[Rfam]
RNA sequence: GUGUUUUUCAUAGUAUUAGAUUUAAGGUUAACAAAGAUUGGUUGUCGUGAUGACAACCAUUUUUUUUGCC
Numbered sequence: 001g002u003g004u005u006u007u008u009c010a011u012a013g014u015a016u017u018a019g020a021u022u023u024a025a026g027g028u029u030a031a032c033a034a035a036g037a038u039u040g041g042u043u044g045u046c047g048u049g050a051u052g053a054c055a056a057c058c059a060u061u062u063u064u065u066u067u068g069c070c
Stems, first nucleotide, its partner, number of pairs: 040058007
This 70-nucleotide RNA from Bacteroides luti belongs to the Rfam family "Bacteroidetes FopS (family of paralogous sRNAs)". The source organism's lineage runs through Bacteria, Bacteroidota, Bacteroidia, Bacteroidaceae and Bacteroides. Rfam describes the family as follows. The RNA-binding protein RbpB and BTncRNA_FopS sRNA are involved in the post-transcription regulation of polysaccharide utilisation loci (PUL). FopS sRNAs function as post-transcriptional repressors by binding to the vicinity of the start codon of the first mRNA of target PUL polycistrons, typically corresponding to the cognate SusC homolog, impeding translation of the respective glycan transporter. For this family Rfam cites "The global RNA-binding protein RbpB is a regulator of polysaccharide utilization in Bacteroides thetaiotaomicron" (Ruttiger et al., Nat Commun, 2025).